Shown here is a 295-nucleotide RNA sequence from Fasciolopsis buskii, a member of the family "Metazoan signal recognition particle RNA". Gene Ontology terms of the family: SRP-dependent cotranslational protein targeting to membrane, signal sequence recognition and signal recognition particle, endoplasmic reticulum targeting. The signal recognition particle (SRP) is a universally conserved ribonucleoprotein.

[Rfam]
RNA sequence: UCCGGCGUUGUGGCAUGCGCCUGUAAUCCAGCUACUUGGAGGCUUGGUGUCGGAAUCUCGUGGGCCGGGAGUCCUGGUGCUGGGUUGUGCAUGUUGAUCGGUCGUCCGCGCUAAGCACCGCGCCGAUAUGGAUGGCCUGUCGGAGGGCGGACCGUCCAGGUCGUCUAAGGAGGGGCGAACCGGCCCAGGGGAGAAAUCCAGCAGGCAAAAGUCCCCGCGUGGUGCGGUAGCGGGAUAGCGUCUGUGAAUGGCGGUCCAGCAACAGCCCGGCCGACAUGUGGAAACUGCCGCCUAG
Numbered sequence: 001u002c003c004g005g006c007g008u009u010g011u012g013g014c015a016u017g018c019g020c021c022u023g024u025a026a027u028c029c030a031g032c033u034a035c036u037u038g039g040a041g042g043c044u045u046g047g048u049g050u051c052g053g054a055a056u057c058u059c060g061u062g063g064g065c066c067g068g069g070a071g072u073c074c075u076g077g078u079g080c081u082g083g084g085u086u087g088u089g090c091a092u093g094u095u096g097a098u099c100g101g102u103c104g105u106c107c108g109c110g111c112u113a114a115g116c117a118c119c120g121c122g123c124c125g126a127u128a129u130g131g132a133u134g135g136c137c138u139g140u141c142g143g144a145g146g147g148c149g150g151a152c153c154g155u156c157c158a159g160g161u162c163g164u165c166u167a168a169g170g171a172g173g174g175g176c177g178a179a180c181c182g183g184c185c186c187a188g189g190g191g192a193g194a195a196a197u198c199c200a201g202c203a204g205g206c207a208a209a210a211g212u213c214c215c216c217g218c219g220u221g222g223u224g225c226g227g228u229a230g231c232g233g234g235a236u237a238g239c240g241u242c243u244g245u246g247a248a249u250g251g252c253g254g255u256c257c258a259g260c261a262a263c264a265g266c267c268c269g270g271c272c273g274a275c276a277u278g279u280g281g282a283a284a285c286u287g288c289c290g291c292c293u294a295g
Stems, first nucleotide, its partner, number of pairs: 001042002004021005027040003046292004051287003056281002059278002061274001063272007074265003078261009090250003094246001099244003103240003106234002109232005115225009124163004129158007137150005164170002172215005183206003190199003